[Rfam]
A member of the RNA family "L4-Archaeoglobi ribosomal protein leades", 103 nucleotides long. A reference for the family is Eckert and Weinberg (2020), "Discovery of 20 novel ribosomal leader candidates in bacteria and archaea", BMC Microbiol.
RNA sequence: CUGAAGAGCGCGUUCGGGUCACUUGCGGACUGCAACACCCGAUCUCUCUCCUGGUGCCGCCGUCGAUGGCGACACCCGCGGAGGGAGAGCGCGUCACCAUCAG
Numbered sequence: 001c002u003g004a005a006g007a008g009c010g011c012g013u014u015c016g017g018g019u020c021a022c023u024u025g026c027g028g029a030c031u032g033c034a035a036c037a038c039c040c041g042a043u044c045u046c047u048c049u050c051c052u053g054g055u056g057c058c059g060c061c062g063u064c065g066a067u068g069g070c071g072a073c074a075c076c077c078g079c080g081g082a083g084g085g086a087g088a089g090c091g092c093g094u095c096a097c098c099a100u101c102a103g
Stems, first nucleotide, its partner, number of pairs: 001103004008094006015041004023035005043088009